[Rfam]
RNA sequence: GUGAUCCUUGGCACUGGAAGAAUUCACAGAGUGCAUUACGACAGGUCGUGGGUUCCCUGGUGCCAGAGAUUGC
Numbered sequence: 001g002u003g004a005u006c007c008u009u010g011g012c013a014c015u016g017g018a019a020g021a022a023u024u025c026a027c028a029g030a031g032u033g034c035a036u037u038a039c040g041a042c043a044g045g046u047c048g049u050g051g052g053u054u055c056c057c058u059g060g061u062g063c064c065a066g067a068g069a070u071u072g073c
Stems, first nucleotide, its partner, number of pairs: 001073005008066006015059003020054002024051004029046001

Rfam assigns this 73-nucleotide sequence from Daphnia pulex to the family "mir-263 microRNA precursor family". Pairs were carried over by alignment from the consensus structure, which was predicted with RNAalifold. Rfam 15.1 lists 368 matches to the family in 211 species. It is one of the family's seed sequences. A reference for the family is Li et al. (2009), "Direct sequencing and expression analysis of a large number of miRNAs in Aedes aegypti and a multi-species survey of novel mosquito miRNAs", BMC Genomics. The organism belongs to Daphnia, within Eukaryota. Its Rfam clan is "mir-182 clan".